[Rfam]
RNA sequence: AACCAAAGCUUUUUGUCAGGGGACAGUUUUCGCAUUUUCUUUAUCCUUAACAGGUGAGAAUUUACUAUACAACUGUCGCUGUUACUGUUUUGGGAAAUCAAUAUUAUUCGUGAUCCAAUAUUUCUUCGUUCUGAAGAGCCUUUUUUGGAUCGUCCUAAUACUAUAGCUUCGUUCUGAAGUUUACAUAUUGUAUUUGGGAAGAAUAACGAAGAUCUUUGAUGAGUUGGAAAGAGACGUUUUGUAAUGUUUUCAUUGCAAUAUCUACACUUUCUUUUCGUAGUAAAGAGCUUUACAUUU
Numbered sequence: 001a002a003c004c005a006a007a008g009c010u011u012u013u014u015g016u017c018a019g020g021g022g023a024c025a026g027u028u029u030u031c032g033c034a035u036u037u038u039c040u041u042u043a044u045c046c047u048u049a050a051c052a053g054g055u056g057a058g059a060a061u062u063u064a065c066u067a068u069a070c071a072a073c074u075g076u077c078g079c080u081g082u083u084a085c086u087g088u089u090u091u092g093g094g095a096a097a098u099c100a101a102u103a104u105u106a107u108u109c110g111u112g113a114u115c116c117a118a119u120a121u122u123u124c125u126u127c128g129u130u131c132u133g134a135a136g137a138g139c140c141u142u143u144u145u146u147g148g149a150u151c152g153u154c155c156u157a158a159u160a161c162u163a164u165a166g167c168u169u170c171g172u173u174c175u176g177a178a179g180u181u182u183a184c185a186u187a188u189u190g191u192a193u194u195u196g197g198g199a200a201g202a203a204u205a206a207c208g209a210a211g212a213u214c215u216u217u218g219a220u221g222a223g224u225u226g227g228a229a230a231g232a233g234a235c236g237u238u239u240u241g242u243a244a245u246g247u248u249u250u251c252a253u254u255g256c257a258a259u260a261u262c263u264a265c266a267c268u269u270u271c272u273u274u275u276c277g278u279a280g281u282a283a284a285g286a287g288c289u290u291u292a293c294a295u296u297u
Base pairs, nucleotide, nucleotide: 003093004092005091006090007089019080020079022077023076024075025074026073027072028071030059031058033056034055035054036053037052104206105205106204107203108202109201112151113150114149115148116147117146118145122138123137124136125135126134127133156190157189158188159187160186165181166180167179168178169177170176171175208291209290210289211288213286214285215284216283225277226276227275228274229273232269233268236267237266240257241256242255243254244253245252246251
Overview: A member of the RNA family "Small nucleolar RNA snR191" from Maudiozyma saulgeensis, 297 nucleotides long. It is annotated as an H/ACA-box small nucleolar RNA. Its Rfam clan is "SNORA74 clan". For this family Rfam cites "A snoRNA that guides the two most conserved pseudouridine modifications within rRNA confers a growth advantage in yeast" (Badis et al., RNA, 2003). Gene Ontology terms of the family: nucleolus and RNA processing.